RNA sequence: CCGCCAUCCAUUGGGGAGUAGCCGUCUCCGGCGUUUAGGGAGAGUUCGCGUCAACAGACUUGGCCGCUCGUUUCGGCGGGCCGCCAUGGCGCGAAUGGCGAAGCGGGGUUUCGAUCCCGUUCCGACUGGCGAGACCUUUGGCAUCGAUC
Numbered sequence: 001c002c003g004c005c006a007u008c009c010a011u012u013g014g015g016g017a018g019u020a021g022c023c024g025u026c027u028c029c030g031g032c033g034u035u036u037a038g039g040g041a042g043a044g045u046u047c048g049c050g051u052c053a054a055c056a057g058a059c060u061u062g063g064c065c066g067c068u069c070g071u072u073u074c075g076g077c078g079g080g081c082c083g084c085c086a087u088g089g090c091g092c093g094a095a096u097g098g099c100g101a102a103g104c105g106g107g108g109u110u111u112c113g114a115u116c117c118c119g120u121u122c123c124g125a126c127u128g129g130c131g132a133g134a135c136c137u138u139u140g141g142c143a144u145c146g147a148u149c
Stems, first nucleotide, its partner, number of pairs: 026042003044096010061086004097148001099146003103142001
Dot-bracket structure: .........................(((...........))).((((((((((.......((((..................))))))))))))))(.(((.(......................................).))).).